Rfam assigns this 131-nucleotide RNA to the family "EFASI RNA".
Rfam's curators put it in the seed alignment.
By type it is a small RNA.
[Rfam]
RNA sequence: GUUGACCGAUACCGACGGCUGGUCACCGCCAGUGGGAUUUCCUGUUUUUUAAUAACAGGCGGCUGUACUGAGUACAUCACCAAACCCCAACACCUCAACACCGUUUCGCUCUGGUGCAUAGGUAUCGUCAA
Numbered sequence: 001g002u003u004g005a006c007c008g009a010u011a012c013c014g015a016c017g018g019c020u021g022g023u024c025a026c027c028g029c030c031a032g033u034g035g036g037a038u039u040u041c042c043u044g045u046u047u048u049u050u051a052a053u054a055a056c057a058g059g060c061g062g063c064u065g066u067a068c069u070g071a072g073u074a075c076a077u078c079a080c081c082a083a084a085c086c087c088c089a090a091c092a093c094c095u096c097a098a099c100a101c102c103g104u105u106u107c108g109c110u111c112u113g114g115u116g117c118a119u120a121g122g123u124a125u126c127g128u129c130a131a
Stems, first nucleotide, its partner, number of pairs: 002131004007127007019032005034087003041059005061081002064076005